[Rfam]
RNA sequence: CGUACACUGGUAGCGAUUAAGCCAGGGGCGGUAGCGUG
Numbered sequence: 001c002g003u004a005c006a007c008u009g010g011u012a013g014c015g016a017u018u019a020a021g022c023c024a025g026g027g028g029c030g031g032u033a034g035c036g037u038g
Base pairs, nucleotide, nucleotide: 007025008024009023010022011021